[Rfam]
A member of the RNA family "Transposase-2 RNA" from Bifidobacterium simiarum, 70 nucleotides long. The family's RNA type in Rfam is small RNA. The family's consensus secondary structure is taken from published work.
RNA sequence: GAAGUGCGAACCAAGCAACGGCACAAAGCCGUAUAAGACUUGGGACGGACGGCCGCGGGACCGUCCUGCA
Numbered sequence: 001g002a003a004g005u006g007c008g009a010a011c012c013a014a015g016c017a018a019c020g021g022c023a024c025a026a027a028g029c030c031g032u033a034u035a036a037g038a039c040u041u042g043g044g045a046c047g048g049a050c051g052g053c054c055g056c057g058g059g060a061c062c063g064u065c066c067u068g069c070a
Stems, first nucleotide, its partner, number of pairs: 011043005018032005047066006054059001